[Rfam]
RNA: Eukaryotic large subunit ribosomal RNA, nucleotides 2622 to 3218
RNA sequence: AAAGAAGACCCUGUUGAGCUUGACUCUAGUCUGACGUUGUGAAAUGACUUAGGAGGUGUAGAAUAAGUGGGAGGCUCUGCCAACCGUGAAAUACCACUACUUCUAAUGUUGUUUUACUUAUACCAUUAUGUAGCAACUAGCCGUCCUCGCGGGCGCCUAGUUCUAGUUGUAAGCCUGUGCUUUUGUGCGGGUGAGCUACGUGGAAGACAUCGUCAGGUGGGGAGUUUGGCUGGGGCGGCACAUCUGUUAAAUGAUAACACAGGUGUCCUAAGGUGAGCUCAAUGAGAACAGAAAUCUCAUGUAGAACAAAAGGGUAAAAGCUCACUUGAUUUUGAUUUUCAGUAUGAAUACAAACCGUGAAAGCGUGGCCUAUCGAUCCUUUAGUUCUUUUGAAUUUUAAGCUAGAGGUGUCAGAAAAGUUACCACAGGGAUAACUGGCUUGUGGCAGCCAAGCGUCCAUAGCGACGUUGCUUUUUGAUUCUUCGAUGUCGGCUCUUCCUAUCAUUGCGAAGUAGAACUCGCCAAUUGUUGGAUUGUUCACCCACUAAUAGGGAACGUGAGCUGGGUUUAGACCGUCGUGAGACAGGUUAGUUUUAC
Number, nucleotide and partner (000 for none) at each position: 001a000002a595003a594004g000005a000006a000007g000008a000009c000010c429011c428012u427013g426014u000015u425016g424017a421018g420019c419020u418021u417022g000023a225024c224025u223026c222027u000028a000029g000030u217031c216032u215033g214034a213035c212036g211037u000038u000039g117040u116041g115042a114043a113044a112045u111046g110047a109048c108049u106050u105051a104052g103053g102054a101055g100056g000057u000058g000059u000060a000061g000062a000063a000064u000065a000066a098067g097068u096069g095070g094071g000072a000073g081074g080075c000076u000077c000078u000079g000080c074081c073082a000083a000084c000085c000086g000087u000088g000089a000090a000091a000092u000093a000094c070095c069096a068097c067098u066099a000100c055101u054102u053103c052104u051105a050106a049107u000108g048109u047110u046111g045112u044113u043114u042115u041116a040117c039118u000119u000120a000121u205122a000123c203124c202125a201126u000127u000128a000129u000130g000131u198132a197133g196134c195135a000136a000137c000138u000139a158140g157141c000142c155143g154144u153145c152146c151147u000148c000149g000150c000151g146152g145153g144154c143155g142156c000157c140158u139159a000160g000161u000162u000163c000164u000165a000166g000167u000168u000169g000170u000171a000172a000173g192174c191175c190176u189177g188178u000179g000180c000181u000182u000183u000184u000185g000186u000187g000188c177189g176190g175191g174192u173193g000194a000195g134196c133197u132198a131199c000200g000201u125202g124203g123204a000205a121206g000207a000208c000209a000210u000211c036212g035213u034214c033215a032216g031217g030218u000219g000220g000221g000222g026223a025224g024225u023226u000227u000228g241229g239230c238231u237232g000233g000234g000235g000236c000237g231238g230239c229240a000241c228242a264243u263244c262245u261246g260247u259248u000249a000250a000251a000252u000253g000254a000255u000256a000257a000258c000259a247260c246261a245262g244263g243264u242265g000266u000267c368268c367269u000270a000271a000272g000273g325274u324275g323276a322277g321278c320279u305280c304281a000282a300283u299284g298285a297286g296287a295288a000289c000290a000291g000292a000293a000294a000295u287296c286297u285298c284299a283300u282301g000302u000303a000304g280305a279306a315307c314308a000309a000310a000311a000312g000313g000314g307315u306316a000317a000318a000319a000320g278321c277322u276323c275324a274325c273326u000327u000328g000329a000330u354331u353332u352333u000334g000335a349336u348337u347338u346339u000340c000341a000342g000343u000344a000345u000346g338347a337348a336349u335350a000351c000352a332353a331354a330355c000356c365357g364358u363359g000360a000361a000362a000363g358364c357365g356366u000367g268368g267369c000370c000371u000372a000373u000374c000375g000376a000377u000378c000379c407380u406381u405382u404383a403384g402385u000386u000387c401388u400389u399390u000391u000392g000393a000394a000395u000396u000397u000398u000399a389400a388401g387402c384403u383404a382405g381406a380407g379408g000409u000410g000411u000412c000413a000414g000415a000416a000417a021418a020419g019420u018421u017422a000423c000424c016425a015426c013427a012428g011429g010430g000431a000432u000433a000434a000435c000436u000437g000438g479439c000440u477441u000442g476443u000444g472445g471446c470447a469448g468449c467450c000451a000452a000453g463454c462455g000456u000457c000458c000459a000460u000461a000462g454463c453464g000465a000466c000467g449468u448469u447470g446471c445472u444473u000474u000475u000476u442477g440478a000479u438480u000481c000482u000483u000484c000485g000486a000487u000488g000489u000490c565491g563492g562493c561494u560495c557496u554497u553498c552499c551500u550501a000502u000503c528504a527505u000506u000507g522508c521509g520510a519511a000512g000513u000514a000515g000516a000517a000518c000519u510520c509521g508522c507523c000524a000525a000526u000527u504528g503529u000530u544531g543532g542533a000534u540535u000536g000537u000538u000539c000540a534541c000542c532543c531544a530545c000546u000547a000548a000549u000550a500551g499552g498553g497554a496555a000556c000557g495558u000559g000560a494561g493562c492563u491564g000565g490566g000567u000568u000569u000570a000571g589572a588573c587574c586575g584576u583577c582578g000579u000580g000581a000582g577583a576584c575585a000586g574587g573588u572589u571590a000591g000592u000593u000594u003595u002596a000597c000